[Rfam]
RNA sequence: GUUUCAGACGAAUCCUUGUGGGGUUGAGGU
Numbered sequence: 001g002u003u004u005c006a007g008a009c010g011a012a013u014c015c016u017u018g019u020g021g022g023g024u025u026g027a028g029g030u
Stems, first nucleotide, its partner, number of pairs: 011025005